[Rfam]
Fluoride riboswitch aptamer (crcB RNA motif): a 77-nucleotide RNA from Gordonia bronchialis. The family's consensus secondary structure is taken from published work. It scores 38 bits against the family's covariance model.

RNA sequence: UGAUCGUCGGGUGAUGGAUCUCCGCCCGGAGGGUUUCCUCCGAACCGCCGAUGUCGGCUGAUGGCUCCUGUUCCGAU
Numbered sequence: 001u002g003a004u005c006g007u008c009g010g011g012u013g014a015u016g017g018a019u020c021u022c023c024g025c026c027c028g029g030a031g032g033g034u035u036u037c038c039u040c041c042g043a044a045c046c047g048c049c050g051a052u053g054u055c056g057g058c059u060g061a062u063g064g065c066u067c068c069u070g071u072u073c074c075g076a077u
Base pairs, nucleotide, nucleotide: 010026011025012024013023016068017067018066020064021063047058048057049056050055